Rfam assigns this 66-nucleotide RNA sequence from Bacillus sp. V3-13 to the family "Bacillaceae-1 RNA". The family has 95 seed sequences and 5,721 matches in Rfam 15.1. The match comes from Rfam's covariance-model search (58 bits). Taxonomically the source falls in Bacillus (Bacteria, Bacillati, Bacilli, Caryophanales).
RNA sequence: GACAAGCGCUGGCCGACUAAGAGCGCCACGUCCUGUGGCAACGUCGGCACUAGUACGUCCUGUACG
Numbered sequence: 001g002a003c004a005a006g007c008g009c010u011g012g013c014c015g016a017c018u019a020a021g022a023g024c025g026c027c028a029c030g031u032c033c034u035g036u037g038g039c040a041a042c043g044u045c046g047g048c049a050c051u052a053g054u055a056c057g058u059c060c061u062g063u064a065c066g
Stems, first nucleotide, its partner, number of pairs: 012048006025039005053065004